[Rfam]
RNA sequence: AACGUUCAUCUCACUUGUUAGUGAGACGGAAGUAGGAAGAUAGGAGCUUGAAAGCUCCGCUGCGAGUAAAUUGCUAAAUCUGCCGAAGGAACGCGUU
Numbered sequence: 001a002a003c004g005u006u007c008a009u010c011u012c013a014c015u016u017g018u019u020a021g022u023g024a025g026a027c028g029g030a031a032g033u034a035g036g037a038a039g040a041u042a043g044g045a046g047c048u049u050g051a052a053a054g055c056u057c058c059g060c061u062g063c064g065a066g067u068a069a070a071u072u073g074c075u076a077a078a079u080c081u082g083c084c085g086a087a088g089g090a091a092c093g094c095g096u097u
Stems, first nucleotide, its partner, number of pairs: 003093005009026007029094001035084002